Rfam assigns this 188-nucleotide sequence from Suricata suricatta to the family "U2 spliceosomal RNA". From the family's description: U2 is a small nuclear RNA (snRNA) component of the spliceosome (involved in pre-mRNA splicing). Complementary binding between U2 snRNA (in an area lying towards the 5' end but 3' to hairpin I) and the branchpoint sequence (BPS) of the intron results the bulging out of an unpaired adenosine, on the BPS, which initiates a nucleophilic attack at the intronic 5' splice site, thus starting the first of two transesterification reactions that mediate splicing. The match comes from Rfam's covariance-model search (103 bits).
RNA sequence: CUUUAUUUUUGGCCUUUUGGCUAAGAUCAAAUGUGGGAUCCGUUAUCAGCUUCAUAUCUGAUACGUCCUCUAUCCAAGGACAAUGCAUUAAAUGGAUUUUGGGAACUGGCAGACAGAAUAGGGGCUUGCUCCGCCCACUCCGUGCAUCGAUCUGGUGUUGGAACACCCCCAGGAACAGCGCACCCCGG
Numbered sequence: 001c002u003u004u005a006u007u008u009u010u011g012g013c014c015u016u017u018u019g020g021c022u023a024a025g026a027u028c029a030a031a032u033g034u035g036g037g038a039u040c041c042g043u044u045a046u047c048a049g050c051u052u053c054a055u056a057u058c059u060g061a062u063a064c065g066u067c068c069u070c071u072a073u074c075c076a077a078g079g080a081c082a083a084u085g086c087a088u089u090a091a092a093u094g095g096a097u098u099u100u101g102g103g104a105a106c107u108g109g110c111a112g113a114c115a116g117a118a119u120a121g122g123g124g125c126u127u128g129c130u131c132c133g134c135c136c137a138c139u140c141c142g143u144g145c146a147u148c149g150a151u152c153u154g155g156u157g158u159u160g161g162a163a164c165a166c167c168c169c170c171a172g173g174a175a176c177a178g179c180g181c182a183c184c185c186c187g188g
Base pairs, nucleotide, nucleotide: 007026008025009024011022012021013020014019044063045062046061047060048059049058065081066080067079068078069077109141111139112138116134121132122131123130124129144181145180147178149176151173152172153171154170155169